[Rfam]
RNA sequence: GAGUUUCUUCAACUCUUUUUUUUCUUUUAAAGAUUUGUCUCCAACUGCAUGCCAGAGUAACGGAGAGACUUUGACAGCCCAGGUCAUCACAGUGCCUGCUGUUGCCACUCAGCUCUCCUAUGUUU
Numbered sequence: 001g002a003g004u005u006u007c008u009u010c011a012a013c014u015c016u017u018u019u020u021u022u023u024c025u026u027u028u029a030a031a032g033a034u035u036u037g038u039c040u041c042c043a044a045c046u047g048c049a050u051g052c053c054a055g056a057g058u059a060a061c062g063g064a065g066a067g068a069c070u071u072u073g074a075c076a077g078c079c080c081a082g083g084u085c086a087u088c089a090c091a092g093u094g095c096c097u098g099c100u101g102u103u104g105c106c107a108c109u110c111a112g113c114u115c116u117c118c119u120a121u122g123u124u125u
Stems, first nucleotide, its partner, number of pairs: 014033004062118006077105002080098004
A member of the RNA family "Small nucleolar RNA SNORA44" from Rattus norvegicus, 125 nucleotides long. ACA44 is a member of the H/ACA class of snoRNA that guide the sites of modification of uridines to pseudouridines. For this family Rfam cites "RNomics: an experimental approach that identifies 201 candidates for novel, small, non-messenger RNAs in mouse" (Huttenhofer et al., EMBO J, 2001). The family's RNA type in Rfam is H/ACA-box small nucleolar RNA. NCBI's taxonomy places the organism under Eukaryota, Gnathostomata, Boreoeutheria, Muroidea, Rattus.